[Rfam]
RNA sequence: CGGUUUUUAACGGUUGUGGCCCGCAGCGGGUCCGGCGCUCAAAACCCUCUCCGGUUCUCCCGGUGCGCACUUGAGGGCUCGCAGGUGUUUCCUCCCUCGCCUGCAUGCUGCGUACCCGCCUCGCCCCGCUCUCCUCUACCUGGUGAGCGGGGCUUUUU
Numbered sequence: 001c002g003g004u005u006u007u008u009a010a011c012g013g014u015u016g017u018g019g020c021c022c023g024c025a026g027c028g029g030g031u032c033c034g035g036c037g038c039u040c041a042a043a044a045c046c047c048u049c050u051c052c053g054g055u056u057c058u059c060c061c062g063g064u065g066c067g068c069a070c071u072u073g074a075g076g077g078c079u080c081g082c083a084g085g086u087g088u089u090u091c092c093u094c095c096c097u098c099g100c101c102u103g104c105a106u107g108c109u110g111c112g113u114a115c116c117c118g119c120c121u122c123g124c125c126c127c128g129c130u131c132u133c134c135u136c137u138a139c140c141u142g143g144u145g146a147g148c149g150g151g152g153c154u155u156u157u158u
Stems, first nucleotide, its partner, number of pairs: 062116008081104007123153009133143002
RNA: Rhizobiales sRNA Atu_C7